[Rfam]
RNA sequence: GUAUUCCACAAUUGUUAGUCGCUUUGGAUAAAAGCGUCGGCAAAAUGACUAAAU
Numbered sequence: 001g002u003a004u005u006c007c008a009c010a011a012u013u014g015u016u017a018g019u020c021g022c023u024u025u026g027g028a029u030a031a032a033a034g035c036g037u038c039g040g041c042a043a044a045a046u047g048a049c050u051a052a053a054u
Base pairs, nucleotide, nucleotide: 013043014041015040016039020036021035022034023033024032025031
The family of this 54-nucleotide RNA from Sinocyclocheilus grahami is "UnaL2 LINE 3' element". About the family: The eel long interspersed element (LINE) UnaL2 and its partner short interspersed element (SINE) share a conserved 3' tail containing a stem-loop that is critical for their retrotransposition. NCBI's taxonomy places the organism under Eukaryota, Vertebrata, Cypriniformes, Cyprininae, Sinocyclocheilus. A search with the family's covariance model found it, with a score of 57 bits.